Group II catalytic intron D1-D4-1: a 78-nucleotide RNA sequence from Tetzosporium hominis. A search with the family's covariance model found it, with a score of 75 bits. Group II introns are found in rRNA, tRNA and mRNA of organelles in fungi, plants and protists, and also in mRNA in bacteria. The base pairs follow the family's consensus structure. The source organism's lineage runs through Bacteria, Bacillati, Bacillota, Caryophanales and Tetzosporium.

RNA sequence: CAAUCCCUCUAGUGAUAGAGAGAUGAAUUGUGAGAAGUCAGCAGAAGUCAUAGUAGCUCCCUUACGGGAGUGAAGGAC
Numbered sequence: 001c002a003a004u005c006c007c008u009c010u011a012g013u014g015a016u017a018g019a020g021a022g023a024u025g026a027a028u029u030g031u032g033a034g035a036a037g038u039c040a041g042c043a044g045a046a047g048u049c050a051u052a053g054u055a056g057c058u059c060c061c062u063u064a065c066g067g068g069a070g071u072g073a074a075g076g077a078c
Stems, first nucleotide, its partner, number of pairs: 001025002004023002007020005038045002047078003056071006